Rfam assigns this 122-nucleotide sequence from Nematostella vectensis to the family "U4atac minor spliceosomal RNA". A reference for the family is Lorkovic et al. (2005), "Evolutionary conservation of minor U12-type spliceosome between plants and humans", RNA. Rfam links the family to the GO terms U4atac snRNP, pre-mRNA 5'-splice site binding and mRNA 5'-splice site recognition. U4atac is an essential component of the minor U12-type spliceosome complex which is required for removal of the rarer class of eukaryotic introns (AT-AC, U12-type). The sequence is in the family's curated seed alignment. Clan: U4 clan. By type it is a spliceosomal small nuclear RNA.

RNA sequence: AACGUCCUUAUCGGGGGUUGAGCGGCAGUUCCGUGAUCGACAAGUGAGAAUUGCUCUGCUGACACCUGAAACUACAACACUAUGUCACCACUCUGAAAAGGGUUGGUGCAAUUUUUGGAAAA
Numbered sequence: 001a002a003c004g005u006c007c008u009u010a011u012c013g014g015g016g017g018u019u020g021a022g023c024g025g026c027a028g029u030u031c032c033g034u035g036a037u038c039g040a041c042a043a044g045u046g047a048g049a050a051u052u053g054c055u056c057u058g059c060u061g062a063c064a065c066c067u068g069a070a071a072c073u074a075c076a077a078c079a080c081u082a083u084g085u086c087a088c089c090a091c092u093c094u095g096a097a098a099a100g101g102g103u104u105g106g107u108g109c110a111a112u113u114u115u116u117g118g119a120a121a122a
Stems, first nucleotide, its partner, number of pairs: 005020001007017003021060004025054006036045002089105002091102004